[Rfam]
RNA sequence: CGAUGAGGUAGAGGCCGCGGCUUAUAUCAGUAUAACGGACGAGAUACAGUGAAUAUUAAAGACUCCGUUAAAAAGGAUAAGCUGCCGAAGAGUGGAAUCAUUCCUGUUUUUCCACUCUGGCGAUGUUUUCGAACAGGAACAUCACUGUCACGUUUUUAUAAACGUGGGGAGCUAUCUUCGGA
Numbered sequence: 001c002g003a004u005g006a007g008g009u010a011g012a013g014g015c016c017g018c019g020g021c022u023u024a025u026a027u028c029a030g031u032a033u034a035a036c037g038g039a040c041g042a043g044a045u046a047c048a049g050u051g052a053a054u055a056u057u058a059a060a061g062a063c064u065c066c067g068u069u070a071a072a073a074a075g076g077a078u079a080a081g082c083u084g085c086c087g088a089a090g091a092g093u094g095g096a097a098u099c100a101u102u103c104c105u106g107u108u109u110u111u112c113c114a115c116u117c118u119g120g121c122g123a124u125g126u127u128u129u130c131g132a133a134c135a136g137g138a139a140c141a142u143c144a145c146u147g148u149c150a151c152g153u154u155u156u157u158a159u160a161a162a163c164g165u166g167g168g169g170a171g172c173u174a175u176c177u178u179c180g181g182a
Base pairs, nucleotide, nucleotide: 006177007176008175009174010173011172017085018084019083020082021081022080023079024078025077033070034069035068036067037066038065039064089118090117091116092115093114094113095112096111097110100107119146120145122143123142124141125140126139127138128137129136148167149166150165151164152163153162154161
Dot-bracket structure: .....((((((.....(((((((((.......(((((((........................)))))))......)))))))))...(((((((((..(......)..)))))))))((.((((((((......)))))))).)).(((((((......)))))))....)))))).....

Shown here is a 182-nucleotide sequence from Bacillus sp. MUM 13, a member of the family "Lysine riboswitch aptamer".
NCBI's taxonomy places the organism under Bacteria, Bacillati, Bacillota, Caryophanales, Bacillus.
Its family is annotated with lysine biosynthetic process in the Gene Ontology.